[Rfam]
RNA sequence: GCCGAGCUAGGUUGCGCUAGCUUAUCACCCGAACGGGGGCAUCGGGUGAUUGGACAAUAACUAUGCCCGCAAGGCAGGAUCCGUGGAUGCGACUCUCUGGUUUGACCGUUUCAAGCUGGUAGUUGAACCAUGUGGCCCGAACGUAGGCUUGGGCUUCUUGGUUCCUAGAGAGGAGGGCUCCGCGUGAGGCUGGUUUAACAGAGCAGCGAAAACCUCCCGCUACCAACAGUGAAAGGAUACUGAGCCGGUGCAUCCUAGAUCCAGAUUGCCAAGUGGGUUGAGUUCAAUUGGACUCUCACCUUU
Numbered sequence: 001g002c003c004g005a006g007c008u009a010g011g012u013u014g015c016g017c018u019a020g021c022u023u024a025u026c027a028c029c030c031g032a033a034c035g036g037g038g039g040c041a042u043c044g045g046g047u048g049a050u051u052g053g054a055c056a057a058u059a060a061c062u063a064u065g066c067c068c069g070c071a072a073g074g075c076a077g078g079a080u081c082c083g084u085g086g087a088u089g090c091g092a093c094u095c096u097c098u099g100g101u102u103u104g105a106c107c108g109u110u111u112c113a114a115g116c117u118g119g120u121a122g123u124u125g126a127a128c129c130a131u132g133u134g135g136c137c138c139g140a141a142c143g144u145a146g147g148c149u150u151g152g153g154c155u156u157c158u159u160g161g162u163u164c165c166u167a168g169a170g171a172g173g174a175g176g177g178c179u180c181c182g183c184g185u186g187a188g189g190c191u192g193g194u195u196u197a198a199c200a201g202a203g204c205a206g207c208g209a210a211a212a213c214c215u216c217c218c219g220c221u222a223c224c225a226a227c228a229g230u231g232a233a234a235g236g237a238u239a240c241u242g243a244g245c246c247g248g249u250g251c252a253u254c255c256u257a258g259a260u261c262c263a264g265a266u267u268g269c270c271a272a273g274u275g276g277g278u279u280g281a282g283u284u285c286a287a288u289u290g291g292a293c294u295c296u297c298a299c300c301u302u303u
Stems, first nucleotide, its partner, number of pairs: 001040003004023007028037003044301006052293001055290002058286001060283003065278001067276004073270004077262005083256001085254001087253003092249001097248008106236002109234005115227001117225007125164006132157001134155007142147001165170001172217005183208003190201003
Dot-bracket structure: ((((((((((......)))))))....(((....))))))...((((((..(..((.(.(((..(.((((..(((((((((.(.(.(((..(....((((((((.((.(((((.(.(((((((.((((((.(.(((((((.(....).))))))).).))))))(....).(((((......(((....(((......)))....)))....))))).))))))).)..)))))))....))))))))).)))).).)))))....))))..)))).)..)))..)..))..)..))))))..